[Rfam]
RNA sequence: UUGCCGGUAACCGCAAGUCUGAAAUAAGCGAGACUGCAAGCUCUGGUGCUGAUGAACAGGAACCGCAUAAGAGGCUAAAUGUAUUGAACAAGUAAGCACAUCAUUGAAACGUCCGAAACACCUCGAGGUGAAUGUUCAUUAUGUAGAUGCGGCAGGCAUUAGAUGAAAGAAGGCAUUC
Numbered sequence: 001u002u003g004c005c006g007g008u009a010a011c012c013g014c015a016a017g018u019c020u021g022a023a024a025u026a027a028g029c030g031a032g033a034c035u036g037c038a039a040g041c042u043c044u045g046g047u048g049c050u051g052a053u054g055a056a057c058a059g060g061a062a063c064c065g066c067a068u069a070a071g072a073g074g075c076u077a078a079a080u081g082u083a084u085u086g087a088a089c090a091a092g093u094a095a096g097c098a099c100a101u102c103a104u105u106g107a108a109a110c111g112u113c114c115g116a117a118a119c120a121c122c123u124c125g126a127g128g129u130g131a132a133u134g135u136u137c138a139u140u141a142u143g144u145a146g147a148u149g150c151g152g153c154a155g156g157c158a159u160u161a162g163a164u165g166a167a168a169g170a171a172g173g174c175a176u177u178c
Stems, first nucleotide, its partner, number of pairs: 001016004006011001028178001030176001032174001037169001042163005049155003063152006074144002078140004083135002086114001088112002093106003

This 178-nucleotide RNA sequence from Rhodohalobacter mucosus belongs to the Rfam family "Group II catalytic intron D1-D4-3".